[Rfam]
This 79-nucleotide RNA sequence from Mesocricetibacter intestinalis belongs to the Rfam family "Aggregatibacter sRNA 69". About the family: Validated by RT-PCR. Has Rho-independent terminator. Pairs were carried over by alignment from the consensus structure, which was predicted with RNAfold. The organism belongs to Mesocricetibacter, within Bacteria.
RNA sequence: UAAAAGGGUAUUAAGGUUGCUAUUUUUUUUUAGACGAACAAUAAUAGGGCUUGGAUAAGUUCGAGUAAAUCAUUUUUUA
Numbered sequence: 001u002a003a004a005a006g007g008g009u010a011u012u013a014a015g016g017u018u019g020c021u022a023u024u025u026u027u028u029u030u031u032a033g034a035c036g037a038a039c040a041a042u043a044a045u046a047g048g049g050c051u052u053g054g055a056u057a058a059g060u061u062c063g064a065g066u067a068a069a070u071c072a073u074u075u076u077u078u079a
Base pairs, nucleotide, nucleotide: 006061007060009058012055015052018049020047021046022045023044024043027041028040063074064073